About this RNA: The record is a 249-nucleotide part of an RNA from Muribaculaceae bacterium Isolate-002, which matches "Bacterial large subunit ribosomal RNA" in Rfam. It scores 2752 bits against the family's covariance model. Pairs were carried over by alignment from the consensus structure, which is taken from published work.
RNA sequence: CAGGAGAUUUGCGGGGACCCGACACUAGUACGAGAGGACCGUGUUGGACAGACCUCCGGUGUUCCGGUUGUACCGCCAGGUGCACCGCCGGGUAGCCGCGUCUGGCAAGGAUAAGUGCUGAAAGCAUCUAAGCACGAAGCCCCCCCCAAGAUAAGAUCUCCAUAUAAGGGUCGUUGCAGACUACGACGUCGAUAGGCCGCAGGUGUAAAGACGGUAACGUCAAAGCCGAGCGGUACUAAUCACCCAAAC
Numbered sequence: 001c002a003g004g005a006g007a008u009u010u011g012c013g014g015g016g017a018c019c020c021g022a023c024a025c026u027a028g029u030a031c032g033a034g035a036g037g038a039c040c041g042u043g044u045u046g047g048a049c050a051g052a053c054c055u056c057c058g059g060u061g062u063u064c065c066g067g068u069u070g071u072a073c074c075g076c077c078a079g080g081u082g083c084a085c086c087g088c089c090g091g092g093u094a095g096c097c098g099c100g101u102c103u104g105g106c107a108a109g110g111a112u113a114a115g116u117g118c119u120g121a122a123a124g125c126a127u128c129u130a131a132g133c134a135c136g137a138a139g140c141c142c143c144c145c146c147c148a149a150g151a152u153a154a155g156a157u158c159u160c161c162a163u164a165u166a167a168g169g170g171u172c173g174u175u176g177c178a179g180a181c182u183a184c185g186a187c188g189u190c191g192a193u194a195g196g197c198c199g200c201a202g203g204u205g206u207a208a209a210g211a212c213g214g215u216a217a218c219g220u221c222a223a224a225g226c227c228g229a230g231c232g233g234u235a236c237u238a239a240u241c242a243c244c245c246a247a248a249c
Stems, first nucleotide, its partner, number of pairs: 003161008013147004019047007049104005057098003064091005069084006109141002115135005165247001168245004172188005193238003196234005202227002206222001210221004